RNA sequence: GUUUGAGGUAGAGGUUGCGGUUUUUAUUAAGCUUUCUGAGUGAGAGGACACGUUGAAGGAAGUCUAGGAAAAAUCGCCGAAAUGUAUAACAGCCUCCCUGUUAUAUGUUGGGACGUAAGUCAAUAACUUGCGGACUGUCUUAGUAGUGAUGCUAAGUUGCGCUAUGUUUUUG
Numbered sequence: 001g002u003u004u005g006a007g008g009u010a011g012a013g014g015u016u017g018c019g020g021u022u023u024u025u026a027u028u029a030a031g032c033u034u035u036c037u038g039a040g041u042g043a044g045a046g047g048a049c050a051c052g053u054u055g056a057a058g059g060a061a062g063u064c065u066a067g068g069a070a071a072a073a074u075c076g077c078c079g080a081a082a083u084g085u086a087u088a089a090c091a092g093c094c095u096c097c098c099u100g101u102u103a104u105a106u107g108u109u110g111g112g113a114c115g116u117a118a119g120u121c122a123a124u125a126a127c128u129u130g131c132g133g134a135c136u137g138u139c140u141u142a143g144u145a146g147u148g149a150u151g152c153u154a155a156g157u158u159g160c161g162c163u164a165u166g167u168u169u170u171u172g
Stems, first nucleotide, its partner, number of pairs: 006167001008165004017077009031063007081109012110136002114132007139156006
This 172-nucleotide sequence from Candidatus Enterococcus dunnyi belongs to the Rfam family "Lysine riboswitch aptamer". A search with the family's covariance model found it, with a score of 90 bits. Taxonomically the source falls in Enterococcus (Bacteria, Bacillati, Bacilli, Lactobacillales). Rfam describes the family as follows. Riboswitches are metabolite binding domains within certain messenger RNAs that serve as precision sensors for their corresponding targets.